[Rfam]
RNA sequence: GUGCAUUCAGUAGGAAUUGAAACUACGAAUUCGCCAAAUAUGAGUUGGGUGCUUUAAUUCAGCCAUGGAUGC
Numbered sequence: 001g002u003g004c005a006u007u008c009a010g011u012a013g014g015a016a017u018u019g020a021a022a023c024u025a026c027g028a029a030u031u032c033g034c035c036a037a038a039u040a041u042g043a044g045u046u047g048g049g050u051g052c053u054u055u056a057a058u059u060c061a062g063c064c065a066u067g068g069a070u071g072c
Stems, first nucleotide, its partner, number of pairs: 003072006010026004040066003044063007
Dot-bracket structure: ..((((((.((((.........)))).............(((.(((((((......))))))))))))))))
RNA: Plastid-ycf2 5UTR RNA